[Rfam]
A member of the RNA family "mir-16 microRNA precursor family" from Aquarana catesbeiana, 82 nucleotides long. For this family Rfam cites "Frequent deletions and down-regulation of micro- RNA genes miR15 and miR16 at 13q14 in chronic lymphocytic leukemia" (Calin et al., Proc Natl Acad Sci U S A, 2002). The family is grouped with related families in Rfam's "mir-15 clan". The match comes from Rfam's covariance-model search (49 bits).
Nucleotides: 082
Stems, first nucleotide, its partner, number of pairs: 001082001003080001005078003010075001011072008022060001024058006
Number, partner (000 for none) and nucleotide at each position: 001082g002000c003080u004000u005078c006077c007076c008000u009000g010075u011072a012071g013070c014069a015068g016067c017066a018065c019000a020000c021000a022060g023000a024058u025057a026056u027055u028054g029053g030000c031000a032000g033000u034000g035000g036000c037000u038000u039000c040000a041000c042000u043000g044000c045000g046000a047000c048000a049000u050000c051000u052000g053029c054028c055027a056026g057025u058024a059000c060022u061000g062000u063000c064000u065018g066017u067016g068015c069014u070013g071012c072011u073000u074000c075010a076007g077006g078005g079000u080003g081000c082001c